[Rfam]
RNA sequence: CGCUCUUAAGAGCCGAAUCGCGCAUGUAUUUUAGAUGUACGUACGGGGGACGCAUCACAUGGGGUGAAUGCAACGGCUGUCUGCCGCUGGCACUACUGCAGCGAAGCAGGCACCAUGCUAGGGAACCAACCUUCUUCCCGAACCCGACAACUAACCUCGGAGGCUAUGAUCGACAACUGA
Numbered sequence: 001c002g003c004u005c006u007u008a009a010g011a012g013c014c015g016a017a018u019c020g021c022g023c024a025u026g027u028a029u030u031u032u033a034g035a036u037g038u039a040c041g042u043a044c045g046g047g048g049g050a051c052g053c054a055u056c057a058c059a060u061g062g063g064g065u066g067a068a069u070g071c072a073a074c075g076g077c078u079g080u081c082u083g084c085c086g087c088u089g090g091c092a093c094u095a096c097u098g099c100a101g102c103g104a105a106g107c108a109g110g111c112a113c114c115a116u117g118c119u120a121g122g123g124a125a126c127c128a129a130c131c132u133u134c135u136u137c138c139c140g141a142a143c144c145c146g147a148c149a150a151c152u153a154a155c156c157u158c159g160g161a162g163g164c165u166a167u168g169a170u171c172g173a174c175a176a177c178u179g180a
Base pairs, nucleotide, nucleotide: 011165012164013163014162019041020040044159045158046157047156048155053061054060062145063144064143070118071117072116121139122138123137124136
Shown here is a 180-nucleotide RNA from Paenibacillus mucilaginosus, a member of the family "c-di-AMP riboswitch aptamer (ydaO/yuaA leader)". Rfam links the family to the GO terms regulation of gene expression and cyclic-di-AMP binding.